[Rfam]
A member of the RNA family "Bacterial RNase P class A" from Thermobacillus composti, 408 nucleotides long.

RNA sequence: AAAGUCUGACAGACAAUCGCCGGCGGCCUUUGUUGCCGCGGGAGGAAAGUCCGGGCUCCGCAGGGCAGGAUGCUGGAUAACGUCCAGUCGGCGCGAGCCGAAGGAUAGUGCCACAGAAAUGGACCGCCGAUGGCCGGCUUCACGCCGGCACAGGCAAGGGUGGAACCGUGGUGUAAGAGACCACGAGCGGCGUUGGUGACAACGCGGCUGGUAAACCCCAUCCGGAGCAAGACCGAGAGAACGCGGCGGCCUCAGAGCCGCAGCCCUUGCCCGGGGCGCGUUCGGGUUGGUCGCUUGAGCUGUGCAGCAAUGCACAGCCUAGAUAGAUGAUUGUCGCUUCCAUCGUGGGAGGGUCGUUCCCGUUAUACCACCGGAAGUACAGAACCCGGCUUAUGGCAGGCUUUCCGC
Numbered sequence: 001a002a003a004g005u006c007u008g009a010c011a012g013a014c015a016a017u018c019g020c021c022g023g024c025g026g027c028c029u030u031u032g033u034u035g036c037c038g039c040g041g042g043a044g045g046a047a048a049g050u051c052c053g054g055g056c057u058c059c060g061c062a063g064g065g066c067a068g069g070a071u072g073c074u075g076g077a078u079a080a081c082g083u084c085c086a087g088u089c090g091g092c093g094c095g096a097g098c099c100g101a102a103g104g105a106u107a108g109u110g111c112c113a114c115a116g117a118a119a120u121g122g123a124c125c126g127c128c129g130a131u132g133g134c135c136g137g138c139u140u141c142a143c144g145c146c147g148g149c150a151c152a153g154g155c156a157a158g159g160g161u162g163g164a165a166c167c168g169u170g171g172u173g174u175a176a177g178a179g180a181c182c183a184c185g186a187g188c189g190g191c192g193u194u195g196g197u198g199a200c201a202a203c204g205c206g207g208c209u210g211g212u213a214a215a216c217c218c219c220a221u222c223c224g225g226a227g228c229a230a231g232a233c234c235g236a237g238a239g240a241a242c243g244c245g246g247c248g249g250c251c252u253c254a255g256a257g258c259c260g261c262a263g264c265c266c267u268u269g270c271c272c273g274g275g276g277c278g279c280g281u282u283c284g285g286g287u288u289g290g291u292c293g294c295u296u297g298a299g300c301u302g303u304g305c306a307g308c309a310a311u312g313c314a315c316a317g318c319c320u321a322g323a324u325a326g327a328u329g330a331u332u333g334u335c336g337c338u339u340c341c342a343u344c345g346u347g348g349g350a351g352g353g354u355c356g357u358u359c360c361c362g363u364u365a366u367a368c369c370a371c372c373g374g375a376a377g378u379a380c381a382g383a384a385c386c387c388g389g390c391u392u393a394u395g396g397c398a399g400g401c402u403u404u405c406c407g408c
Stems, first nucleotide, its partner, number of pairs: 001404008010395002012335007020042002023039005047392003051389005056227004063272004068223005073087005088102001089100004103218002108216002110212003124159002126155003131150002134147001167185006187208002190205006231292004239283006263277005299318008
Rfam classes the family as a ribozyme. Ribonuclease P (RNase P) is a ubiquitous endoribonuclease, found in archaea, bacteria and eukarya as well as chloroplasts and mitochondria. Its best characterised activity is the generation of mature 5'-ends of tRNAs by cleaving the 5'-leader elements of precursor-tRNAs. Cellular RNase Ps are ribonucleoproteins. RNA from bacterial RNase Ps retains its catalytic activity in the absence of the protein subunit, i.e. it is a ribozyme. Pairs were carried over by alignment from the consensus structure, which is taken from published work.